Pseudomonadales-1 RNA: a 161-nucleotide RNA sequence from Acinetobacter baumannii. By type it is a small RNA. The family's consensus secondary structure is taken from published work. It is one of the family's seed sequences.

RNA sequence: CCUAUAGGCUGACCACCUGUAGAACAUGCCAUCGAGUAAAAACCAUCCCAGUAGGGUUAUUGGUACGCCCGCCAUUAAAGAGAUUGAAAGCAAGUGAAAUUGACCGUGCAUGUUAGGUAUGUGUGAUUGUGAGUAGCGGUAGAUCAGUUGCCGAGCUGGUC
Numbered sequence: 001c002c003u004a005u006a007g008g009c010u011g012a013c014c015a016c017c018u019g020u021a022g023a024a025c026a027u028g029c030c031a032u033c034g035a036g037u038a039a040a041a042a043c044c045a046u047c048c049c050a051g052u053a054g055g056g057u058u059a060u061u062g063g064u065a066c067g068c069c070c071g072c073c074a075u076u077a078a079a080g081a082g083a084u085u086g087a088a089a090g091c092a093a094g095u096g097a098a099a100u101u102g103a104c105c106g107u108g109c110a111u112g113u114u115a116g117g118u119a120u121g122u123g124u125g126a127u128u129g130u131g132a133g134u135a136g137c138g139g140u141a142g143a144u145c146a147g148u149u150g151c152c153g154a155g156c157u158g159g160u161c
Stems, first nucleotide, its partner, number of pairs: 002022007012064004025112005055070002058067001060065001084139003090130004095125001097124001099122002103118003142161007